[Rfam]
RNA sequence: GGAAAAUUGAGAGGAGCUGCCCCUAGUACGAGAGGACCGGGGUGGACGUAUCUCUGGUGGACCUGUUGUUGCGCCAGCAGCAUAGCAGGGUAGCUAUAUACGGAAGGGAUAACCGCUGAAUGCAUCUAAGCGGGAAGCCCCCCUCAAAACCAGUUUUCCCUUGAGAGUCGUGGAAGACCACCACGUUGAUAGGCCAGAUGUGGAAGUGCGGUGACGCAUGAAGCUGACUGGUACUAAUUACUCGAUUGU
Numbered sequence: 001g002g003a004a005a006a007u008u009g010a011g012a013g014g015a016g017c018u019g020c021c022c023c024u025a026g027u028a029c030g031a032g033a034g035g036a037c038c039g040g041g042g043u044g045g046a047c048g049u050a051u052c053u054c055u056g057g058u059g060g061a062c063c064u065g066u067u068g069u070u071g072c073g074c075c076a077g078c079a080g081c082a083u084a085g086c087a088g089g090g091u092a093g094c095u096a097u098a099u100a101c102g103g104a105a106g107g108g109a110u111a112a113c114c115g116c117u118g119a120a121u122g123c124a125u126c127u128a129a130g131c132g133g134g135a136a137g138c139c140c141c142c143c144u145c146a147a148a149a150c151c152a153g154u155u156u157u158c159c160c161u162u163g164a165g166a167g168u169c170g171u172g173g174a175a176g177a178c179c180a181c182c183a184c185g186u187u188g189a190u191a192g193g194c195c196a197g198a199u200g201u202g203g204a205a206g207u208g209c210g211g212u213g214a215c216g217c218a219u220g221a222a223g224c225u226g227a228c229u230g231g232u233a234c235u236a237a238u239u240a241c242u243c244g245a246u247u248g249u
Base pairs, nucleotide, nucleotide: 001159002158003157004156005155006154007153008152011145012144013143014142017045018044019043020042021041022040023039047102048101049100050099051098055096056095057094062089063088064087065086066085067082068081069080070079071078072077106140107139108138113133114132115131116130117129162245165243166242167241168240169185170184171183172182173181190236191235192234193232194231195230196229197228200224206219207218208217209216210215

The record is a 249-nucleotide part of an RNA from Maricaulis maris, which matches "Bacterial large subunit ribosomal RNA" in Rfam. The match comes from Rfam's covariance-model search (2776 bits).